[Rfam]
RNA: Ma3 gene ribosomal frameshift signal
Organism: Pipistrellus kuhlii
RNA sequence: GGGAAACGAGAUGGGGGCUGGGGGCGUGAGCCACCCCGAGCCCUAGGCAGCAUAGGCUCA
Numbered sequence: 001g002g003g004a005a006a007c008g009a010g011a012u013g014g015g016g017g018c019u020g021g022g023g024g025c026g027u028g029a030g031c032c033a034c035c036c037c038g039a040g041c042c043c044u045a046g047g048c049a050g051c052a053u054a055g056g057c058u059c060a
Base pairs, nucleotide, nucleotide: 014044015043016042017041018040019039021037022036023035024034028059029058030057031056032055